[Rfam]
RNA sequence: UGGGACCUUCGGGGCCCUAUAACCAUCUCGGCGUCGCUAUCUAGAUGUCGGGGACAAGCAAAACGGAAGACAGAGA
Numbered sequence: 001u002g003g004g005a006c007c008u009u010c011g012g013g014g015c016c017c018u019a020u021a022a023c024c025a026u027c028u029c030g031g032c033g034u035c036g037c038u039a040u041c042u043a044g045a046u047g048u049c050g051g052g053g054a055c056a057a058g059c060a061a062a063a064c065g066g067a068a069g070a071c072a073g074a075g076a
Base pairs, nucleotide, nucleotide: 002017003016004015006014007013008012027052028051029050030049031048032047033046034045035044
RNA: L2-Alphaproteobacteria ribosomal protein leader